Shown here is an 85-nucleotide sequence from Quercus lobata, a member of the family "Small nucleolar RNA snoR53Y". The source organism's lineage runs through Eukaryota, Viridiplantae, Tracheophyta, Pentapetalae and Quercus. The family's RNA type in Rfam is C/D-box small nucleolar RNA. Clan: snoR53 clan.
RNA sequence: GUUCCCUAUGAUGCUUCAUUAUGAACCAUGCUAAUGCUGAUCAAUCCAUGAUUGAUACUUUCUUCAUUCAUAUGCUGAGGGAAUG
Numbered sequence: 001g002u003u004c005c006c007u008a009u010g011a012u013g014c015u016u017c018a019u020u021a022u023g024a025a026c027c028a029u030g031c032u033a034a035u036g037c038u039g040a041u042c043a044a045u046c047c048a049u050g051a052u053u054g055a056u057a058c059u060u061u062c063u064u065c066a067u068u069c070a071u072a073u074g075c076u077g078a079g080g081g082a083a084u085g
Stems, first nucleotide, its partner, number of pairs: 001084007